[Rfam]
RNA sequence: UUCCCCAUUUGACUGCCACAUUUUCUCCCAGUAGAUUUUAGUGGCUAUGCUUAUGGGAUAGAGUAACAUCGCCAUGAUCUGAAGGGGGAGGGUUUGUUUGUGUCCUCCUUCUAUAUGAAAUGGCUAAACAGAAAAAA
Number, nucleotide and partner (000 for none) at each position: 001u000002u000003c000004c057005c056006c055007a054008u000009u000010u000011g000012a000013c000014u000015g000016c044017c043018a042019c041020a000021u000022u000023u000024u000025c000026u000027c000028c000029c000030a000031g000032u000033a000034g000035a000036u000037u000038u000039u000040a000041g019042u018043g017044g016045c000046u000047a000048u000049g000050c000051u000052u000053a000054u007055g006056g005057g004058a000059u000060a000061g000062a000063g000064u000065a000066a000067c000068a000069u000070c000071g124072c123073c122074a121075u000076g000077a000078u000079c000080u000081g000082a000083a000084g000085g000086g000087g000088g000089a112090g111091g110092g109093u000094u000095u000096g000097u000098u000099u000100g000101u000102g000103u000104c000105c000106u000107c000108c000109u092110u091111c090112u089113a000114u000115a000116u000117g000118a000119a000120a000121u074122g073123g072124c071125u000126a000127a000128a000129c000130a000131g000132a000133a000134a000135a000136a000137a000
RNA: Small nucleolar RNA SNORA29